Shown here is a 74-nucleotide RNA sequence from Blautia pseudococcoides, a member of the family "tRNA". NCBI's taxonomy places the organism under Bacteria, Bacillati, Clostridia, Lachnospirales, Blautia. Rfam classes the family as a transfer RNA.
RNA sequence: GUGGGUAUAGCGCAGUUGGUUAGCGCGCCAGAUUGUGGCUCUGGAGGCCGAGGGUUCGAAUCCCUUUACCCACC
Numbered sequence: 001g002u003g004g005g006u007a008u009a010g011c012g013c014a015g016u017u018g019g020u021u022a023g024c025g026c027g028c029c030a031g032a033u034u035g036u037g038g039c040u041c042u043g044g045a046g047g048c049c050g051a052g053g054g055u056u057c058g059a060a061u062c063c064c065u066u067u068a069c070c071c072a073c074c
Stems, first nucleotide, its partner, number of pairs: 001073007010026004028044005050066005

A search with the family's covariance model found it, with a score of 71 bits.